About this RNA:
The record is a 367-nucleotide RNA from Mesobacillus persicus, which matches "Group I catalytic intron" in Rfam.
RNA sequence: UCGUCUGGCUCAGUAUCUUGGCUGGAUGAUAUUGCGAAGUUGACUCAUCUAGUUGAGCAGGGGGGAUCCCGUUAAAUACGCCAUGGCGGGAUUAAAAUCUCGUGAAUUGCUGGAACACCCUUAGAGCCAUAUCAACCACAACGUGACCGGUAACGGUGAGCGUGAUGGUUCAAAAAUGAUAAGGAUUGGGCAAUCAGCAGCGAAGCAUCUUUGGAAACGAAGAUGAACGUUCAACGACUAUUGAAAUCACCUAAGAAGUGAUCUUUAAGGUGAAAGUAAACCAUAGAUUCGGUAACGGUCUUUUGGGGCACGAGACAGAGGGGUAAAUCCUUUGAUGAUAUAGUCUGACCUCAUAUGAAAGUAUGAG
Numbered sequence: 001u002c003g004u005c006u007g008g009c010u011c012a013g014u015a016u017c018u019u020g021g022c023u024g025g026a027u028g029a030u031a032u033u034g035c036g037a038a039g040u041u042g043a044c045u046c047a048u049c050u051a052g053u054u055g056a057g058c059a060g061g062g063g064g065g066a067u068c069c070c071g072u073u074a075a076a077u078a079c080g081c082c083a084u085g086g087c088g089g090g091a092u093u094a095a096a097a098u099c100u101c102g103u104g105a106a107u108u109g110c111u112g113g114a115a116c117a118c119c120c121u122u123a124g125a126g127c128c129a130u131a132u133c134a135a136c137c138a139c140a141a142c143g144u145g146a147c148c149g150g151u152a153a154c155g156g157u158g159a160g161c162g163u164g165a166u167g168g169u170u171c172a173a174a175a176a177u178g179a180u181a182a183g184g185a186u187u188g189g190g191c192a193a194u195c196a197g198c199a200g201c202g203a204a205g206c207a208u209c210u211u212u213g214g215a216a217a218c219g220a221a222g223a224u225g226a227a228c229g230u231u232c233a234a235c236g237a238c239u240a241u242u243g244a245a246a247u248c249a250c251c252u253a254a255g256a257a258g259u260g261a262u263c264u265u266u267a268a269g270g271u272g273a274a275a276g277u278a279a280a281c282c283a284u285a286g287a288u289u290c291g292g293u294a295a296c297g298g299u300c301u302u303u304u305g306g307g308g309c310a311c312g313a314g315a316c317a318g319a320g321g322g323g324u325a326a327a328u329c330c331u332u333u334g335a336u337g338a339u340a341u342a343g344u345c346u347g348a349c350c351u352c353a354u355a356u357g358a359a360a361g362u363a364u365g366a367g
Stems, first nucleotide, its partner, number of pairs: 005025006012018002098315004103310002108199006118190003200230002207224004234346001236345005318332005352365005
Group I catalytic introns are large self-splicing ribozymes. They catalyse their own excision from mRNA, tRNA and rRNA precursors in a wide range of organisms. The core secondary structure consists of 9 paired regions (P1-P9). These fold to essentially two domains - the P4-P6 domain (formed from the stacking of P5, P4, P6 and P6a helices) and the P3-P9 domain (formed from the P8, P3, P7 and P9 helices). The secondary structure mark-up for this family represents only this conserved core. Group I catalytic introns often have long ORFs inserted in loop regions. The window size for this search is chosen to minimise search time and catch the small examples. A larger window size will find more matches.
Lineage of the source: Bacteria > Bacillati > Caryophanales > Bacillaceae > Mesobacillus.